RNA sequence: CAGCUAAUUGAAUAAACUUCUCAUAUAUCCUUAGGAAUUGGCCUAAGAGUUUCUACCCAGCAACCGUAAUUGCCGGACUAUGAGUGAAAUACACAUAUAG
Numbered sequence: 001c002a003g004c005u006a007a008u009u010g011a012a013u014a015a016a017c018u019u020c021u022c023a024u025a026u027a028u029c030c031u032u033a034g035g036a037a038u039u040g041g042c043c044u045a046a047g048a049g050u051u052u053c054u055a056c057c058c059a060g061c062a063a064c065c066g067u068a069a070u071u072g073c074c075g076g077a078c079u080a081u082g083a084g085u086g087a088a089a090u091a092c093a094c095a096u097a098u099a100g
Stems, first nucleotide, its partner, number of pairs: 018086001020084006030047006057076002060073004